[Rfam]
RNA sequence: UUGCUAUGAUGACUUCUUAGGACACCUUUGGAUGACCCAUGAAAAUAAACAAUUAAAUCUGAGCAAC
Number, nucleotide and partner (000 for none) at each position: 001u066002u065003g064004c063005u000006a000007u000008g000009a000010u000011g000012a000013c000014u000015u000016c000017u000018u000019a000020g000021g000022a000023c000024a000025c000026c000027u000028u000029u000030g000031g000032a000033u000034g000035a000036c000037c000038c000039a000040u000041g000042a000043a000044a000045a000046u000047a000048a000049a000050c000051a000052a000053u000054u000055a000056a000057a000058u000059c000060u000061g000062a000063g004064c003065a002066a001067c000
This 67-nucleotide sequence from Neogobius melanostomus belongs to the Rfam family "Small nucleolar RNA SNORD58". Rfam links the family to the GO terms RNA processing and nucleolus. Rfam classes the family as a C/D-box small nucleolar RNA. NCBI's taxonomy places the organism under Eukaryota, Metazoa, Chordata, Neoteleostei, Neogobius. snoRNA U58 is found in introns 1, 3 and 6 of the ribosomal protein RPL17 gene in humans.